[Rfam]
RNA: Bacterial RNase P class A
Organism: Chryseobacterium taklimakanense
RNA sequence: CGGGAAAGCCGGCCUGUUGAUUCUCAGUUUUCUGAGGGUAGGAAAGUCCGGACACCACAGGGCAGCAUAGCGGAUAACAUCCGUCCGUAGCAAUACGAGGACCAGUGCAACAGAAAGCAGGUACAGUUCGGCUGUAGUGAAACCAGGUAAACUCUAUGCGGUGCAAUGGUAAGUAUAUCGAUGCUUUACGGAGCAAUCUGUAAAUAGGAGCGGCCCGUUCCGAAAAUCGAGGGGUAAUCAGCUAAAGCCUUGCAGCAAUGCCAGGCGCAGAUAAAUAACAGGCAUCCGCCACCGGCGUGAUACAGAAUCCGGCUUACAGGCUUUCCCGUGGU
Numbered sequence: 001c002g003g004g005a006a007a008g009c010c011g012g013c014c015u016g017u018u019g020a021u022u023c024u025c026a027g028u029u030u031u032c033u034g035a036g037g038g039u040a041g042g043a044a045a046g047u048c049c050g051g052a053c054a055c056c057a058c059a060g061g062g063c064a065g066c067a068u069a070g071c072g073g074a075u076a077a078c079a080u081c082c083g084u085c086c087g088u089a090g091c092a093a094u095a096c097g098a099g100g101a102c103c104a105g106u107g108c109a110a111c112a113g114a115a116a117g118c119a120g121g122u123a124c125a126g127u128u129c130g131g132c133u134g135u136a137g138u139g140a141a142a143c144c145a146g147g148u149a150a151a152c153u154c155u156a157u158g159c160g161g162u163g164c165a166a167u168g169g170u171a172a173g174u175a176u177a178u179c180g181a182u183g184c185u186u187u188a189c190g191g192a193g194c195a196a197u198c199u200g201u202a203a204a205u206a207g208g209a210g211c212g213g214c215c216c217g218u219u220c221c222g223a224a225a226a227u228c229g230a231g232g233g234g235u236a237a238u239c240a241g242c243u244a245a246a247g248c249c250u251u252g253c254a255g256c257a258a259u260g261c262c263a264g265g266c267g268c269a270g271a272u273a274a275a276u277a278a279c280a281g282g283c284a285u286c287c288g289c290c291a292c293c294g295g296c297g298u299g300a301u302a303c304a305g306a307a308u309c310c311g312g313c314u315u316a317c318a319g320g321c322u323u324u325c326c327c328g329u330g331g332u
Stems, first nucleotide, its partner, number of pairs: 001328010011317001012283007020039008044315003048312005053163004060216004065159005070084005085099001086097004100154002105152002107148002122136006167240004178230005207221005247266004252261003